[Rfam]
UnaL2 LINE 3' element: a 54-nucleotide RNA sequence from Coregonus sp. 'balchen'. The match comes from Rfam's covariance-model search (60 bits). NCBI's taxonomy places the organism under Eukaryota, Deuterostomia, Vertebrata, Euteleosteomorpha, Coregonus. The family's RNA type in Rfam is cis-regulatory element.

RNA sequence: UGCGCUCACUACUGUAAGUCGCUCUGGAUAAGAUCGUCUGCUAAAUGACUAAGA
Numbered sequence: 001u002g003c004g005c006u007c008a009c010u011a012c013u014g015u016a017a018g019u020c021g022c023u024c025u026g027g028a029u030a031a032g033a034u035c036g037u038c039u040g041c042u043a044a045a046u047g048a049c050u051a052a053g054a
Stems, first nucleotide, its partner, number of pairs: 013043001014041003020036002023033003